[Rfam]
RNA: Bacterial RNase P class A
RNA sequence: GCGGAUGGCUGGAUGGCUGCUGGGGUGAUUUGCUUGCAGAUGAUCUCAGAGGAAAGUCCGGACUCCACAAAGCACGGUGCCGGGUAACACCCGGCGGGGGAAACCUCAGGGAAAGCGCCACAGAAAACAAACGACCCUCUAUAUGGGGGCCAUGGUGAAACGGUGGGGUAAGAGCCCACCGCGCGCGCGGCAACGCAAGCGGCACGGCAAGCCCCACCGGGAGCAAUGCCAAAUAGGGACCUCGCGCCGCAAGGCUGGGAUGCUUGAACCCAAGACGGUCCGGGUUGGCAGCUAGAGGAUGUCUGGUAACAGAUAUUCUAGAUGAAUGGUCAUCAAGGGCCUCGGCCCGAACAAAAUCCGGCUUAUAGGCCGUCCGCGCGC
Numbered sequence: 001g002c003g004g005a006u007g008g009c010u011g012g013a014u015g016g017c018u019g020c021u022g023g024g025g026u027g028a029u030u031u032g033c034u035u036g037c038a039g040a041u042g043a044u045c046u047c048a049g050a051g052g053a054a055a056g057u058c059c060g061g062a063c064u065c066c067a068c069a070a071a072g073c074a075c076g077g078u079g080c081c082g083g084g085u086a087a088c089a090c091c092c093g094g095c096g097g098g099g100g101a102a103a104c105c106u107c108a109g110g111g112a113a114a115g116c117g118c119c120a121c122a123g124a125a126a127a128c129a130a131a132c133g134a135c136c137c138u139c140u141a142u143a144u145g146g147g148g149g150c151c152a153u154g155g156u157g158a159a160a161c162g163g164u165g166g167g168g169u170a171a172g173a174g175c176c177c178a179c180c181g182c183g184c185g186c187g188c189g190g191c192a193a194c195g196c197a198a199g200c201g202g203c204a205c206g207g208c209a210a211g212c213c214c215c216a217c218c219g220g221g222a223g224c225a226a227u228g229c230c231a232a233a234u235a236g237g238g239a240c241c242u243c244g245c246g247c248c249g250c251a252a253g254g255c256u257g258g259g260a261u262g263c264u265u266g267a268a269c270c271c272a273a274g275a276c277g278g279u280c281c282g283g284g285u286u287g288g289c290a291g292c293u294a295g296a297g298g299a300u301g302u303c304u305g306g307u308a309a310c311a312g313a314u315a316u317u318c319u320a321g322a323u324g325a326a327u328g329g330u331c332a333u334c335a336a337g338g339g340c341c342u343c344g345g346c347c348c349g350a351a352c353a354a355a356a357u358c359c360g361g362c363u364u365a366u367a368g369g370c371c372g373u374c375c376g377c378g379c380g381c
Stems, first nucleotide, its partner, number of pairs: 001377010011366001012334007020049007028041004054364003058361005063223004075219005080094005095109001096107004110214002115212002117208003132154002135149005162180006181203001182201003187196003227290004237281005265272002298317008